This 368-nucleotide RNA sequence from Acanthamoeba castellanii belongs to the Rfam family "RNase MRP". Clan: RNaseP clan. The base pairs follow the family's consensus structure, which is taken from published work. The family has 66 seed sequences and 3,510 matches in Rfam 15.1. By type it is a ribozyme.
RNA sequence: GUACACGGCCAAGGAUUACCAUCGAAGCAACACAUGCGUACAGCUUGAGCCCAGGGGGUCACCCUGGUUCUCUCGUCUGCUCAUCAACCCACCGCUCUUUGGGGAAAGUCUCCGGACACUAGGACAGAAAGUGUCAGCGCUCAUGCGCAGAAGUUUGGCUUCACCGGCGGCCGGCUCUCGGGCCGGAACCAAGAUGAGGACCUGGCCGUCUCGCCUCGUUGCGAGAUGGCCGGCCCUUGGAGUUCACUCGAGUCGUCGGUGGCCAACGAGUUCGUCAUAGCACAGUUAUGUUCAAUCAGCGCCGGGGCCAACUGACCGUCGUGACAGCCCCCGGACGCCAACUCAACGGAGCUUACUCUGGCCGUGUA
Numbered sequence: 001g002u003a004c005a006c007g008g009c010c011a012a013g014g015a016u017u018a019c020c021a022u023c024g025a026a027g028c029a030a031c032a033c034a035u036g037c038g039u040a041c042a043g044c045u046u047g048a049g050c051c052c053a054g055g056g057g058g059u060c061a062c063c064c065u066g067g068u069u070c071u072c073u074c075g076u077c078u079g080c081u082c083a084u085c086a087a088c089c090c091a092c093c094g095c096u097c098u099u100u101g102g103g104g105a106a107a108g109u110c111u112c113c114g115g116a117c118a119c120u121a122g123g124a125c126a127g128a129a130a131g132u133g134u135c136a137g138c139g140c141u142c143a144u145g146c147g148c149a150g151a152a153g154u155u156u157g158g159c160u161u162c163a164c165c166g167g168c169g170g171c172c173g174g175c176u177c178u179c180g181g182g183c184c185g186g187a188a189c190c191a192a193g194a195u196g197a198g199g200a201c202c203u204g205g206c207c208g209u210c211u212c213g214c215c216u217c218g219u220u221g222c223g224a225g226a227u228g229g230c231c232g233g234c235c236c237u238u239g240g241a242g243u244u245c246a247c248u249c250g251a252g253u254c255g256u257c258g259g260u261g262g263c264c265a266a267c268g269a270g271u272u273c274g275u276c277a278u279a280g281c282a283c284a285g286u287u288a289u290g291u292u293c294a295a296u297c298a299g300c301g302c303c304g305g306g307g308c309c310a311a312c313u314g315a316c317c318g319u320c321g322u323g324a325c326a327g328c329c330c331c332c333g334g335a336c337g338c339c340a341a342c343u344c345a346a347c348g349g350a351g352c353u354u355a356c357u358c359u360g361g362c363c364g365u366g367u368a
Stems, first nucleotide, its partner, number of pairs: 002368010014297004018291002022102006106354003110351004123135004137148004157264003163260006174253004186245004228235002299338003303334001